[Rfam]
The family of this 47-nucleotide sequence is "L31-Actinobacteria ribosomal protein leader".
Its Rfam clan is "Ribosomal Protein L31 Leader clan".
It is annotated as a cis-regulatory leader.
RNA sequence: CCGGCUCCGGUUCACCCCGCGUCUGCAUCCACGGGGACCCGGCGGCC
Numbered sequence: 001c002c003g004g005c006u007c008c009g010g011u012u013c014a015c016c017c018c019g020c021g022u023c024u025g026c027a028u029c030c031a032c033g034g035g036g037a038c039c040c041g042g043c044g045g046c047c
Base pairs, nucleotide, nucleotide: 003047004046005045007042008041009040010039015036016035017034018033019032021030